[Rfam]
RNA sequence: CACUGCUUCAGCAUUGCCGGAGAUGCUCGACCGCCGGUCGAAGUGAUGGUGUCGUUCAUCGACGCGCAUCGGGAUGCACACGGGGUCGAGCCGAUUUGCAGCGUGCUGCCGAUUGCCCCG
Numbered sequence: 001c002a003c004u005g006c007u008u009c010a011g012c013a014u015u016g017c018c019g020g021a022g023a024u025g026c027u028c029g030a031c032c033g034c035c036g037g038u039c040g041a042a043g044u045g046a047u048g049g050u051g052u053c054g055u056u057c058a059u060c061g062a063c064g065c066g067c068a069u070c071g072g073g074a075u076g077c078a079c080a081c082g083g084g085g086u087c088g089a090g091c092c093g094a095u096u097u098g099c100a101g102c103g104u105g106c107u108g109c110c111g112a113u114u115g116c117c118c119c120g
Base pairs, nucleotide, nucleotide: 016035018033019032020031081120082119083118084117085116092115093114095112096111098109099108100107101106
Rfam assigns this 120-nucleotide RNA sequence from Paenirhodobacter populi to the family "ALIL pseudoknot". Rfam classes the family as a cis-regulatory element. A search with the family's covariance model found it, with a score of 81 bits.